[Rfam]
RNA sequence: AUCUCCCAGUGUUCACUGUGUUAGCCUUGGUGUGUGGCGAACAAUUAAGGCACGCGGUGAAUGCCAGGAGGC
Number, nucleotide and partner (000 for none) at each position: 001a000002u000003c070004u069005c068006c067007c000008a000009g064010u063011g062012u061013u060014c059015a058016c057017u000018g055019u054020g053021u000022u000023a000024g000025c050026c049027u048028u047029g046030g045031u044032g000033u000034g000035u000036g000037g000038c000039g000040a000041a000042c000043a000044a031045u030046u029047a028048a027049g026050g025051c000052a000053c020054g019055c018056g000057g016058u015059g014060a013061a012062u011063g010064c009065c000066a000067g006068g005069a004070g003071g000072c000
RNA: mir-124 microRNA precursor family